[Rfam]
RNA sequence: GAAUGACAUGAUGAUUGUUUGUUUCCCUAUUGGUUUGAUAGCCUAUAUGAUGGCACCUGUGUAUUAGCUCUAUCUGAUCAUUC
Numbered sequence: 001g002a003a004u005g006a007c008a009u010g011a012u013g014a015u016u017g018u019u020u021g022u023u024u025c026c027c028u029a030u031u032g033g034u035u036u037g038a039u040a041g042c043c044u045a046u047a048u049g050a051u052g053g054c055a056c057c058u059g060u061g062u063a064u065u066a067g068c069u070c071u072a073u074c075u076g077a078u079c080a081u082u083c
Stems, first nucleotide, its partner, number of pairs: 002082004037057001041054003
RNA: Small nucleolar RNA Z102/R77
Organism: Glycine max